[Rfam]
RNA sequence: CAUCGACAGUUCGUCGGUCGCCGGUUUUCUGACCCGUCCCCCCCCGUUGGAUGCCGGAUGUUAGCGGCAGCCUCAUUUCCCCCCCUCUCCGGGCUGCCGCUUUGAGUGUAGUGAUAUGGCCGUUACGGUAACCCCCCCCUCACCGUAACGGCCAAUU
Numbered sequence: 001c002a003u004c005g006a007c008a009g010u011u012c013g014u015c016g017g018u019c020g021c022c023g024g025u026u027u028u029c030u031g032a033c034c035c036g037u038c039c040c041c042c043c044c045c046g047u048u049g050g051a052u053g054c055c056g057g058a059u060g061u062u063a064g065c066g067g068c069a070g071c072c073u074c075a076u077u078u079c080c081c082c083c084c085c086u087c088u089c090c091g092g093g094c095u096g097c098c099g100c101u102u103u104g105a106g107u108g109u110a111g112u113g114a115u116a117u118g119g120c121c122g123u124u125a126c127g128g129u130a131a132c133c134c135c136c137c138c139c140u141c142a143c144c145g146u147a148a149c150g151g152c153c154a155a156u157u
Stems, first nucleotide, its partner, number of pairs: 021057005027051001031048003063101010118153001120151010131140001
Background
Rfam assigns this 157-nucleotide RNA sequence from Brucella intermedia to the family "Alphaproteobacterial sRNA ar7". Pairs were carried over by alignment from the consensus structure. The match comes from Rfam's covariance-model search (94 bits). The source organism's lineage runs through Bacteria, Pseudomonadati, Hyphomicrobiales, Brucellaceae and Brucella intermedia.